Shown here is a 76-nucleotide RNA from Crocodylus porosus, a member of the family "Mammalian CPEB3 ribozyme". Taxonomically the source falls in Crocodylus (Eukaryota, Gnathostomata, Tetrapoda, Longirostres). Pairs were carried over by alignment from the consensus structure, which is taken from published work.
RNA sequence: ACUGCAAGUUUGAUGUCACAGCAGAAGCACUCACAGUGCAGCCCUGUCAGAUUACAGGAAACCUGUGAAUUCUGCU
Numbered sequence: 001a002c003u004g005c006a007a008g009u010u011u012g013a014u015g016u017c018a019c020a021g022c023a024g025a026a027g028c029a030c031u032c033a034c035a036g037u038g039c040a041g042c043c044c045u046g047u048c049a050g051a052u053u054a055c056a057g058g059a060a061a062c063c064u065g066u067g068a069a070u071u072c073u074g075c076u
Stems, first nucleotide, its partner, number of pairs: 012044001015042002020076007027039003048065003052061002
Dot-bracket structure: ...........[..[[...((((((((((.......))).]].]...(((.((......)).)))....)))))))